The family of this 162-nucleotide RNA sequence from Dipodomys ordii is "U12 minor spliceosomal RNA". Rfam links the family to the GO terms U12 snRNP, pre-mRNA branch point binding and mRNA branch site recognition. The match comes from Rfam's covariance-model search (63 bits). Rfam classes the family as a spliceosomal small nuclear RNA. The base pairs follow the family's consensus structure.
RNA sequence: CUGAUAAUUUAUUUUUUAAGAAUACUAGCAAUUCAAAAAUAAUGAUUCGAGGAAAUAUUCAAAUCCUUACUGCUAAUGUGAGACAAAUUUUUGAGCAGGUAAAUGUUGCUCCUAAAGUGACCUGCCUUCUUUUCAGGAUGCCUUGGUUCUGUGGUCUGCCUG
Number, nucleotide and partner (000 for none) at each position: 001c000002u000003g000004a000005u000006a000007a000008u000009u000010u000011a000012u000013u000014u000015u000016u000017u000018a000019a000020g000021a000022a000023u000024a000025c000026u000027a000028g000029c000030a000031a000032u000033u000034c000035a000036a000037a000038a000039a000040u000041a000042a000043u000044g065045a064046u063047u062048c000049g060050a059051g058052g000053a000054a000055a000056u000057a000058u051059u050060c049061a000062a047063a046064u045065c044066c082067u081068u080069a079070c078071u000072g000073c000074u000075a000076a000077u000078g070079u069080g068081a067082g066083a000084c000085a000086a000087a000088u000089u000090u000091u000092u000093g000094a000095g000096c162097a161098g160099g159100u158101a000102a000103a157104u000105g155106u154107u153108g152109c151110u000111c000112c146113u145114a000115a143116a000117g141118u140119g139120a000121c137122c136123u135124g134125c000126c000127u000128u000129c000130u000131u000132u000133u000134c124135a123136g122137g121138a000139u119140g118141c117142c000143u115144u000145g113146g112147u000148u000149c000150u000151g109152u108153g107154g106155u105156c000157u103158g100159c099160c098161u097162g096